[Rfam]
RNA sequence: ACCUUAAGCUGGGGGUCCUGGCGUGUGUCGAGCCGGGUGAGAAAAACCCUUUGAACCUGACGCGGAUAAUGCCGCCGCAGGGAAGCGUUGUUGGUCGCAA
Numbered sequence: 001a002c003c004u005u006a007a008g009c010u011g012g013g014g015g016u017c018c019u020g021g022c023g024u025g026u027g028u029c030g031a032g033c034c035g036g037g038u039g040a041g042a043a044a045a046a047c048c049c050u051u052u053g054a055a056c057c058u059g060a061c062g063c064g065g066a067u068a069a070u071g072c073c074g075c076c077g078c079a080g081g082g083a084a085g086c087g088u089u090g091u092u093g094g095u096c097g098c099a100a
Stems, first nucleotide, its partner, number of pairs: 006088001008086003011050004016044001017037005056081004062075004
Overview
Shown here is a 100-nucleotide RNA from Sulfurimicrobium lacus, a member of the family "TPP riboswitch aptamer (THI element)". Its family is annotated with thiamine pyrophosphate binding in the Gene Ontology. The source organism's lineage runs through Bacteria, Pseudomonadota, Betaproteobacteria, Nitrosomonadales and Sulfurimicrobium. The base pairs follow the family's consensus structure, which is taken from published work. The match comes from Rfam's covariance-model search (67 bits).